Source information
The family of this 65-nucleotide sequence from Rhodocyclus tenuis is "Betaproteobacteria toxic small RNA". The family's consensus secondary structure was predicted with WAR. Rfam's curators write: Overexpression in amino aid rich medium attenuates growth, suggesting role in repressing amino acid intake and metabolism. Taxonomically the source falls in Rhodocyclus (Bacteria, Pseudomonadati, Pseudomonadota, Rhodocyclales). The literature on the family includes a 2017 paper in Sci Rep by Sass et al., "Identification of small RNAs abundant in Burkholderia cenocepacia biofilms reveal putative regulators with a potential role in carbon and iron metabolism". A search with the family's covariance model found it, with a score of 63 bits.
RNA sequence: UGUCUCCUCCACCCUCCUCCUUUGGUGUGGAUUUAGCGCGACUCUUCGGAGUCGCGUUUUUUUUG
Numbered sequence: 001u002g003u004c005u006c007c008u009c010c011a012c013c014c015u016c017c018u019c020c021u022u023u024g025g026u027g028u029g030g031a032u033u034u035a036g037c038g039c040g041a042c043u044c045u046u047c048g049g050a051g052u053c054g055c056g057u058u059u060u061u062u063u064u065g
Stems, first nucleotide, its partner, number of pairs: 008031005013025002035058008
Dot-bracket structure: .......(((((((.........)).)))))...((((((((........)))))))).......